[Rfam]
RNA sequence: AAAGUCCAAUCGGGAGAAUAGACUCCACUCCCGUAGCCUGAGAGGCGCCAUGAAGUGAGAGCGACAUGGCGAAGCCCUCUGACAUCACAUGCAAAAGGCAUGUGGGCAAAUCUCCAGGUUGUAACGUACAGUGAACGUAGAUGUAGCCUCGUUACACGCAAUUCCGGUGGCUGAGACGGUCGAUAACGUGCGAAAGCAAUAAGAACUGACCGAAACGAGUCUGGAACGGCAGUUCUCACCGGCGACAUGGAGAG
Dot-bracket structure: ...........(((((....[......))))).(.((...((((((((((((..((....))..)))))))...)).)))..........)).)................................................(.....(((............(((((((((..((((........))).)...)))....(((((((.((........]..)).....))))))))))))))))..)......
The family of this 254-nucleotide RNA from Bacillus cereus is "Group II catalytic intron D1-D4-6". The source organism's lineage runs through Bacteria, Bacillota, Bacilli, Caryophanales and Bacillus cereus. On this family, see Chu et al., EMBO J 2001: "Control of branch-site choice by a group II intron". Group II introns are found in rRNA, tRNA and mRNA of organelles in fungi, plants and protists, and also in mRNA in bacteria.